[Rfam]
RNA sequence: UCGUAGCAGGGGAGGCACUAUGGCGUGAAAGCAAGAUAGUGGAGCCCUCCGACAACAUUUUCUAAAGGGAAAAUGAGCAAAGCUCUAGGUUGUAACCAAA
Numbered sequence: 001u002c003g004u005a006g007c008a009g010g011g012g013a014g015g016c017a018c019u020a021u022g023g024c025g026u027g028a029a030a031g032c033a034a035g036a037u038a039g040u041g042g043a044g045c046c047c048u049c050c051g052a053c054a055a056c057a058u059u060u061u062c063u064a065a066a067g068g069g070a071a072a073a074u075g076a077g078c079a080a081a082g083c084u085c086u087a088g089g090u091u092g093u094a095a096c097c098a099a100a
Stems, first nucleotide, its partner, number of pairs: 011050005016041006025032002057074006077093003

The record is a 100-nucleotide RNA, which matches "Group II catalytic intron D1-D4-4" in Rfam. The match comes from Rfam's covariance-model search (58 bits). Group II introns are found in rRNA, tRNA and mRNA of organelles in fungi, plants and protists, and also in mRNA in bacteria. The pairing is the family consensus, mapped onto this sequence. For this family Rfam cites "The ins and outs of group II introns" (Bonen and Vogel, Trends Genet, 2001).